[Rfam]
RNA sequence: GGAUCGGGAGGCCGCCAGUCGGGACGGUGGCCAUGAAUUGAUCCUCAGACGCUGUCUCGUAUGGGCAAGCUGCCGGGGCCCGACGGCAGUCUUG
Number, nucleotide and partner (000 for none) at each position: 001g044002g043003a042004u041005c040006g000007g000008g000009a000010g032011g031012c030013c029014g028015c027016c026017a000018g000019u000020c000021g000022g000023g000024a000025c000026g016027g015028u014029g013030g012031c011032c010033a000034u000035g000036a000037a000038u000039u000040g005041a004042u003043c002044c001045u000046c000047a000048g000049a000050c000051g000052c000053u000054g000055u000056c000057u000058c000059g000060u000061a000062u000063g000064g000065g000066c094067a093068a092069g091070c000071u088072g087073c086074c085075g084076g000077g000078g000079c000080c000081c000082g000083a000084c075085g074086g073087c072088a071089g000090u000091c069092u068093u067094g066
The record is a 94-nucleotide RNA sequence from Sedimentitalea arenosa, which matches "Rhodo-rpoB RNA" in Rfam. Taxonomically the source falls in Sedimentitalea (Bacteria, Pseudomonadati, Pseudomonadota, Rhodobacterales).